[Rfam]
RNA: Bacterial small subunit ribosomal RNA, nucleotides 560 to 912
Organism: Fumia xinanensis
RNA sequence: GGUGUAAAGGGAGCGUAGGCGGGAAGAUAAGUUGGACGUUUAAUCUAUCGGCUCAACCGAUAUCAGCGUUCAAAACUGUUUUUCUUGAGUGAAGUAGAGGUAAGCGGAAUUCCUAGUGUAGCGGUGAAAUGCGUAAAUAUUAGGAGGAACACCAGUGGCGAAGGCGGCUUACUGGGCUUUAACUGACGCUGAGGCUCGAAAGCGUGGGUAGCAAACAGGAUUAGAUACCCUGGUAGUCCACGCUGUAAACGAUGAUUACUAGGUGUGGGGGGACUGACCCCUUCCGUGCCGGAGUUAACACAAUAAGUAAUCCACCUGGGGAGUACGACCGCAAGGUUGAAACUCAAAGGAAU
Numbered sequence: 001g002g003u004g005u006a007a008a009g010g011g012a013g014c015g016u017a018g019g020c021g022g023g024a025a026g027a028u029a030a031g032u033u034g035g036a037c038g039u040u041u042a043a044u045c046u047a048u049c050g051g052c053u054c055a056a057c058c059g060a061u062a063u064c065a066g067c068g069u070u071c072a073a074a075a076c077u078g079u080u081u082u083u084c085u086u087g088a089g090u091g092a093a094g095u096a097g098a099g100g101u102a103a104g105c106g107g108a109a110u111u112c113c114u115a116g117u118g119u120a121g122c123g124g125u126g127a128a129a130u131g132c133g134u135a136a137a138u139a140u141u142a143g144g145a146g147g148a149a150c151a152c153c154a155g156u157g158g159c160g161a162a163g164g165c166g167g168c169u170u171a172c173u174g175g176g177c178u179u180u181a182a183c184u185g186a187c188g189c190u191g192a193g194g195c196u197c198g199a200a201a202g203c204g205u206g207g208g209u210a211g212c213a214a215a216c217a218g219g220a221u222u223a224g225a226u227a228c229c230c231u232g233g234u235a236g237u238c239c240a241c242g243c244u245g246u247a248a249a250c251g252a253u254g255a256u257u258a259c260u261a262g263g264u265g266u267g268g269g270g271g272g273a274c275u276g277a278c279c280c281c282u283u284c285c286g287u288g289c290c291g292g293a294g295u296u297a298a299c300a301c302a303a304u305a306a307g308u309a310a311u312c313c314a315c316c317u318g319g320g321g322a323g324u325a326c327g328a329c330c331g332c333a334a335g336g337u338u339g340a341a342a343c344u345c346a347a348a349g350g351a352a353u
Stems, first nucleotide, its partner, number of pairs: 001316003009313001011197004016191001018190003022084007030077002032073009046062006088184003091180005099173007106150001110146008121132003158165002202243006211237002216232004254312006262290011294301002318345003327338004